[Rfam]
RNA sequence: CCCACAAGACAGGGGAGCACGCGCAGGCGUGCUGAGAGUGCGGACCAGCCGCAGACCCUACGAACCUGAUCCGGUUAGCACCGGCGAUAGGGAGUCACCAUGCACCGAAC
Numbered sequence: 001c002c003c004a005c006a007a008g009a010c011a012g013g014g015g016a017g018c019a020c021g022c023g024c025a026g027g028c029g030u031g032c033u034g035a036g037a038g039u040g041c042g043g044a045c046c047a048g049c050c051g052c053a054g055a056c057c058c059u060a061c062g063a064a065c066c067u068g069a070u071c072c073g074g075u076u077a078g079c080a081c082c083g084g085c086g087a088u089a090g091g092g093a094g095u096c097a098c099c100a101u102g103c104a105c106c107g108a109a110c
Stems, first nucleotide, its partner, number of pairs: 008096003011059004017032005039053005065091004071084004

The family of this 110-nucleotide RNA from Nocardioides sp. S5 is "TPP riboswitch aptamer (THI element)". The source organism's lineage runs through Bacteria, Bacillati, Actinomycetota, Nocardioidaceae and Nocardioides. Pairs were carried over by alignment from the consensus structure, which is taken from published work.